RNA sequence: UGGCGUCUAGGGGAUGGGGUGCCCCCUAUAACCGCCGACUCGGCUGAUGACUCCUGCGACGAC
Numbered sequence: 001u002g003g004c005g006u007c008u009a010g011g012g013g014a015u016g017g018g019g020u021g022c023c024c025c026c027u028a029u030a031a032c033c034g035c036c037g038a039c040u041c042g043g044c045u046g047a048u049g050a051c052u053c054c055u056g057c058g059a060c061g062a063c
Stems, first nucleotide, its partner, number of pairs: 010026004016054005034044003